[Rfam]
RNA sequence: CGGUGAUGUCUCCUUACCGUUAUCAACGGAGGCACUCGGUCGUGCUGUGGGUGGGGACGAUGACGGUCCUGCCACCUUAGACGCCUGUCGUCAAUGGUGCGGUGUGAGGGCGGGUUAGAUGCCCA
Numbered sequence: 001c002g003g004u005g006a007u008g009u010c011u012c013c014u015u016a017c018c019g020u021u022a023u024c025a026a027c028g029g030a031g032g033c034a035c036u037c038g039g040u041c042g043u044g045c046u047g048u049g050g051g052u053g054g055g056g057a058c059g060a061u062g063a064c065g066g067u068c069c070u071g072c073c074a075c076c077u078u079a080g081a082c083g084c085c086u087g088u089c090g091u092c093a094a095u096g097g098u099g100c101g102g103u104g105u106g107a108g109g110g111c112g113g114g115u116u117a118g119a120u121g122c123c124c125a
Stems, first nucleotide, its partner, number of pairs: 001019004007034007035108004039103008049077005080092004112124004
The record is a 125-nucleotide sequence from Anoxybacillus flavithermus, which matches "epsC RNA" in Rfam. The base pairs follow the family's consensus structure, which is taken from published work. It is annotated as a cis-regulatory element. It scores 112 bits against the family's covariance model. Taxonomically the source falls in Anoxybacillus (Bacteria, Bacillati, Bacillota, Anoxybacillaceae).